This 96-nucleotide RNA sequence from Spongiibacter pelagi belongs to the Rfam family "t44 RNA". For this family Rfam cites "Transcriptome analysis of Escherichia coli using high-density oligonucleotide probe arrays" (Tjaden et al., Nucleic Acids Res, 2002). The organism belongs to Spongiibacter, within Bacteria. A search with the family's covariance model found it, with a score of 51 bits. Rfam's curators write: This family consists of a number of bacterial RNA genes of between 135 and 170 bases in length. The t44 gene has been identified in several species of enteric bacteria but homologs have also been identified in Pseudomonas and Coxiella species.

RNA sequence: UUUGACGGGUAAAAACGACGCGUAAACACCGGCACGUUUUCCUGGGUGCCCUGGCGUAAAGCCGGGUUGGAAGGCGGGGUGUUUGCAAGACUUAAC
Numbered sequence: 001u002u003u004g005a006c007g008g009g010u011a012a013a014a015a016c017g018a019c020g021c022g023u024a025a026a027c028a029c030c031g032g033c034a035c036g037u038u039u040u041c042c043u044g045g046g047u048g049c050c051c052u053g054g055c056g057u058a059a060a061g062c063c064g065g066g067u068u069g070g071a072a073g074g075c076g077g078g079g080u081g082u083u084u085g086c087a088a089g090a091c092u093u094a095a096c
Base pairs, nucleotide, nucleotide: 023085024084025083026082027081028080029079030078035076036075037074038073039072040071041070042069048067049066050065051064